[Rfam]
RNA sequence: GUUUUUUUAUCGCUGAGUUCCCGGUUAUAGGCCGGGGAACGGGGGAACCAACAGGAUUCCGGAACGAUAGGAAUCCACGGGGUGAAUCCGGAUGGCUGGAGCCGAGGCUUCAUGCCGGAAGGUAGGGCGACUCUCAUGCCCGAAUCCGACAGCUAACCUCGUAAGCGUAUUGAGAGAGGCGAC
Number, nucleotide and partner (000 for none) at each position: 001g000002u000003u000004u000005u000006u000007u000008u000009a000010u000011c167012g166013c165014u164015g000016a000017g000018u038019u037020c036021c035022c034023g033024g032025u031026u030027a000028u000029a000030g026031g025032c024033c023034g022035g021036g020037g019038a018039a162040c161041g160042g159043g158044g157045g000046a000047a000048c000049c079050a000051a000052c000053a000054g000055g000056a000057u000058u000059c000060c000061g000062g000063a000064a000065c000066g000067a000068u000069a000070g000071g000072a000073a000074u000075c000076c000077a000078c000079g049080g147081g146082g145083u000084g000085a000086a000087u000088c122089c121090g000091g000092a000093u000094g000095g000096c000097u000098g000099g000100a000101g000102c000103c000104g000105a000106g000107g000108c000109u000110u000111c000112a000113u000114g000115c000116c000117g000118g000119a000120a000121g089122g088123u000124a000125g141126g140127g139128c138129g000130a000131c000132u000133c000134u000135c000136a000137u000138g128139c127140c126141c125142g000143a000144a000145u082146c081147c080148g000149a000150c000151a000152g000153c000154u000155a000156a000157c044158c043159u042160c041161g040162u039163a000164a014165g013166c012167g011168u000169a000170u000171u000172g000173a000174g000175a000176g000177a000178g000179g000180c000181g000182a000183c000

Shown here is a 183-nucleotide sequence from Cohnella cholangitidis, a member of the family "c-di-AMP riboswitch aptamer (ydaO/yuaA leader)". NCBI's taxonomy places the organism under Bacteria, Bacillati, Bacillota, Paenibacillaceae, Cohnella. The match comes from Rfam's covariance-model search (83 bits).